[Rfam]
RNA sequence: ACGUGUGUGAGGAGCGAACCAGAAGAGGUACCGAGACGAAACACGGCCAGUCGUCGGUACCUUUUCUGAU
Numbered sequence: 001a002c003g004u005g006u007g008u009g010a011g012g013a014g015c016g017a018a019c020c021a022g023a024a025g026a027g028g029u030a031c032c033g034a035g036a037c038g039a040a041a042c043a044c045g046g047c048c049a050g051u052c053g054u055c056g057g058u059a060c061c062u063u064u065u066c067u068g069a070u
Stems, first nucleotide, its partner, number of pairs: 021067004027061002032056003035052003